[Rfam]
Nucleotides: 084
Stems, first nucleotide, its partner, number of pairs: 002083004
Number, partner (000 for none) and nucleotide at each position: 001000u002083g003082g004081c005080u006000u007000a008000u009000g010000a011000u012000g013000a014000a015000a016000c017000g018000u019000c020000a021000c022000u023000a024000u025000c026000u027000u028000a029000g030000c031000g032000g033000a034000u035000u036000c037000c038000a039000g040000u041000g042000a043000g044000a045000a046000u047000a048000c049000a050000u051000g052000u053000c054000a055000a056000u057000g058000a059000u060000c061000u062000g063000a064000u065000u066000g067000u068000u069000a070000c071000a072000c073000a074000c075000a076000c077000u078000g079000a080005a081004g082003c083002c084000u

Shown here is an 84-nucleotide RNA from Nelumbo nucifera, a member of the family "Small nucleolar RNA R11/Z151". The base pairs follow the family's consensus structure, which was predicted with PFOLD. A search with the family's covariance model found it, with a score of 67 bits. It is annotated as a C/D-box small nucleolar RNA. The literature on the family includes a 2001 paper in J Mol Biol by Barneche et al., "Identification of 66 box C/D snoRNAs in Arabidopsis thaliana: extensive gene duplications generated multiple isoforms predicting new ribosomal RNA 2'-O-methylation sites". Its family is annotated with RNA processing and nucleolus in the Gene Ontology. The organism belongs to Nelumbo, within Eukaryota.